[Rfam]
RNA: Small nucleolar RNA SNORD14
Organism: Striga hermonthica
RNA sequence: UGUCUGUGACGACAAAACCUAAGGCUUGUUUCUCAAAACAUUCGUAGUGGCUGCCUGAUAGCUUUCGCCUUCGCCGGGCUUGAGAGCUUGUGCUGCUUGUAUCCUUCCUUGGAUGUCUGAGACU
Numbered sequence: 001u002g003u004c005u006g007u008g009a010c011g012a013c014a015a016a017a018c019c020u021a022a023g024g025c026u027u028g029u030u031u032c033u034c035a036a037a038a039c040a041u042u043c044g045u046a047g048u049g050g051c052u053g054c055c056u057g058a059u060a061g062c063u064u065u066c067g068c069c070u071u072c073g074c075c076g077g078g079c080u081u082g083a084g085a086g087c088u089u090g091u092g093c094u095g096c097u098u099g100u101a102u103c104c105u106u107c108c109u110u111g112g113a114u115g116u117c118u119g120a121g122a123c124u
Stems, first nucleotide, its partner, number of pairs: 002123003061087006